[Rfam]
RNA: MIR390 microRNA precursor family
Organism: Nicotiana sylvestris
RNA sequence: UGGGAGAAUCUGUAAAGCUCAGGAGGGAUAGCGCCAUGGAUGAAUAUUAUACAUGAGCUUAAUAACAAUAUUGCUUGUUUUAACCAUCCAUAGCGCUAUCCAUCCUGAGUUUCAUAGCUUCUUCAU
Numbered sequence: 001u002g003g004g005a006g007a008a009u010c011u012g013u014a015a016a017g018c019u020c021a022g023g024a025g026g027g028a029u030a031g032c033g034c035c036a037u038g039g040a041u042g043a044a045u046a047u048u049a050u051a052c053a054u055g056a057g058c059u060u061a062a063u064a065a066c067a068a069u070a071u072u073g074c075u076u077g078u079u080u081u082a083a084c085c086a087u088c089c090a091u092a093g094c095g096c097u098a099u100c101c102a103u104c105c106u107g108a109g110u111u112u113c114a115u116a117g118c119u120u121c122u123u124c125a126u
Base pairs, nucleotide, nucleotide: 010117016111017110018109019108020107021106022105023104024103026101027100028099029098030097031096032095033094034093